[Rfam]
RNA sequence: UUCUCAUCAAGAGAGGCAGAGGGACUGGCCCGAUGAAGCCUCGGCAACCUUCAGAUUCAUUUAUCUGAAAAGGUGCCAAUUCCUACGCUUGAUUAAUUUAAGUGGAAGAUGAGAG
Numbered sequence: 001u002u003c004u005c006a007u008c009a010a011g012a013g014a015g016g017c018a019g020a021g022g023g024a025c026u027g028g029c030c031c032g033a034u035g036a037a038g039c040c041u042c043g044g045c046a047a048c049c050u051u052c053a054g055a056u057u058c059a060u061u062u063a064u065c066u067g068a069a070a071a072g073g074u075g076c077c078a079a080u081u082c083c084u085a086c087g088c089u090u091g092a093u094u095a096a097u098u099u100a101a102g103u104g105g106a107a108g109a110u111g112a113g114a115g
Stems, first nucleotide, its partner, number of pairs: 001115008013042005021031003027083002043077004048073002050069006081107001086104006